[Rfam]
Description
The family of this 142-nucleotide sequence from Firmicutes bacterium CAG:552 is "Ribosomal protein L10 leader". It scores 59 bits against the family's covariance model. Rfam's curators write: This family is a putative r-protein leader autoregulatory structure found in B. subtilis and other low-GC Gram-positive bacteria. It is located in the 5' untranslated regions of mRNAs encoding ribosomal proteins L10 and L12 (rplJ-rplL). By type it is a cis-regulatory leader.
RNA sequence: UAAAUAUAAGUAAUUAAACCGUAGACAGUAAGUAACCGCAAGGUUAUAAAUCGCAAGAGCUUACCGAGGUGAACAAAAAAAGACUACAAACUGUUUUUUUUGCGACCUCUCGAGCUUUCGGAGGUCGCUUUGUUUUACGGGU
Numbered sequence: 001u002a003a004a005u006a007u008a009a010g011u012a013a014u015u016a017a018a019c020c021g022u023a024g025a026c027a028g029u030a031a032g033u034a035a036c037c038g039c040a041a042g043g044u045u046a047u048a049a050a051u052c053g054c055a056a057g058a059g060c061u062u063a064c065c066g067a068g069g070u071g072a073a074c075a076a077a078a079a080a081a082g083a084c085u086a087c088a089a090a091c092u093g094u095u096u097u098u099u100u101u102g103c104g105a106c107c108u109c110u111c112g113a114g115c116u117u118u119c120g121g122a123g124g125u126c127g128c129u130u131u132g133u134u135u136u137a138c139g140g141g142u
Stems, first nucleotide, its partner, number of pairs: 028064006034045003103127008112118001

On this family, see Zengel and Lindahl, Prog Nucleic Acid Res Mol Biol 1994: "Diverse mechanisms for regulating ribosomal protein synthesis in Escherichia coli".